[Rfam]
RNA sequence: UAGACAAAUUAUUGUAUUCGACUGUAUUCACGAUAUGUAUAAUGUAAAUAGCGCAAUUCAUGGUCUAUUCCGUUGUUUUUAAACGGAAAGUGAAUCAAUUAACAUAAUAGACUCCU
Numbered sequence: 001u002a003g004a005c006a007a008a009u010u011a012u013u014g015u016a017u018u019c020g021a022c023u024g025u026a027u028u029c030a031c032g033a034u035a036u037g038u039a040u041a042a043u044g045u046a047a048a049u050a051g052c053g054c055a056a057u058u059c060a061u062g063g064u065c066u067a068u069u070c071c072g073u074u075g076u077u078u079u080u081a082a083a084c085g086g087a088a089a090g091u092g093a094a095u096c097a098a099u100u101a102a103c104a105u106a107a108u109a110g111a112c113u114c115c116u
Base pairs, nucleotide, nucleotide: 003114004113009110010109011108012107013106014105015104017102018101020100021099023097024096026095027094028093029092030091031090034085036083037078039076040075041074042073043072